[Rfam]
RNA sequence: AAAUUCCAACCCCGGAAAGGCCCAGCCAGCCACCGGGAAUCGAGUCUUGAGUUGUGGAAAGCAAUGACCAUAACUAAGCGUAGACAGAGCGAACGACAGACCGUAACGAAAGUGAAGCCAUCGAGCCCCGUUAAACCCGUAAAGUGGAUGCCGACCGGCUCUUUGGACUGGGAAGGCAACAGUAGAUGCGGGACAAAGGCGACUGCAUCGGAGAAUCCAUCGGGGUCCAAGAGCA
Numbered sequence: 001a002a003a004u005u006c007c008a009a010c011c012c013c014g015g016a017a018a019g020g021c022c023c024a025g026c027c028a029g030c031c032a033c034c035g036g037g038a039a040u041c042g043a044g045u046c047u048u049g050a051g052u053u054g055u056g057g058a059a060a061g062c063a064a065u066g067a068c069c070a071u072a073a074c075u076a077a078g079c080g081u082a083g084a085c086a087g088a089g090c091g092a093a094c095g096a097c098a099g100a101c102c103g104u105a106a107c108g109a110a111a112g113u114g115a116a117g118c119c120a121u122c123g124a125g126c127c128c129c130g131u132u133a134a135a136c137c138c139g140u141a142a143a144g145u146g147g148a149u150g151c152c153g154a155c156c157g158g159c160u161c162u163u164u165g166g167a168c169u170g171g172g173a174a175g176g177c178a179a180c181a182g183u184a185g186a187u188g189c190g191g192g193a194c195a196a197a198g199g200c201g202a203c204u205g206c207a208u209c210g211g212a213g214a215a216u217c218c219a220u221c222g223g224g225g226u227c228c229a230a231g232a233g234c235a
Stems, first nucleotide, its partner, number of pairs: 012036004019031003025200002040088002044085004048080002050075008060065001123227001125226006144220006150177003155171004183211001185209007